[Rfam]
This 168-nucleotide RNA from Streptomyces sp. SID8379 belongs to the Rfam family "c-di-AMP riboswitch aptamer (ydaO/yuaA leader)". It scores 46 bits against the family's covariance model. About the family: This family represents a conserved RNA structure found upstream of the ydaO and yuaA genes in Bacillus subtilis and related genes in other bacteria. The ydaO/yuaA element is thought to act as a genetic 'off' switch for the ydaO and yuaA genes in its native state. It is believed that the element may be triggered during osmotic shock leading to activation of ydaO, a predicted amino acid transporter gene, and members of the yuaA-yubG operon which code for KtrA and KtrB K+ transporters.
RNA sequence: AUCCGUGCAACGACCCGUGACGGCAGGAGCGGGGGACCCACAGGCAGUACGCCGCCCCGGGAUCUCCCGGAGCGGCUCGGGGUGCAGCCGGACGCCUUCUCGCGGCCCGGCCGGACAUCUCCAGUCCGAACCCGACAGCUCACCUCGUAGGCGACGGAGAGGAAACGC
Number, nucleotide and partner (000 for none) at each position: 001a000002u028003c027004c026005g000006u000007g000008c000009a000010a000011c000012g000013a000014c000015c000016c000017g000018u000019g000020a000021c000022g000023g000024c000025a000026g004027g003028a002029g148030c147031g146032g145033g144034g143035g000036a000037c000038c000039c079040a000041c000042a000043g000044g000045c000046a000047g000048u000049a000050c000051g000052c000053c000054g000055c000056c000057c000058c000059g000060g000061g000062a000063u000064c000065u000066c000067c000068c000069g000070g000071a000072g000073c000074g000075g000076c000077u000078c000079g039080g133081g132082g131083u000084g000085c000086a000087g000088c110089c109090g108091g107092a000093c000094g000095c000096c000097u000098u000099c000100u000101c000102g000103c000104g000105g000106c000107c091108c090109g089110g088111c000112c000113g127114g126115a125116c124117a000118u000119c000120u000121c000122c000123a000124g116125u115126c114127c113128g000129a000130a000131c082132c081133c080134g000135a000136c000137a000138g000139c000140u000141c000142a000143c034144c033145u032146c031147g030148u029149a000150g000151g000152c000153g000154a000155c000156g000157g000158a000159g000160a000161g000162g000163a000164a000165a000166c000167g000168c000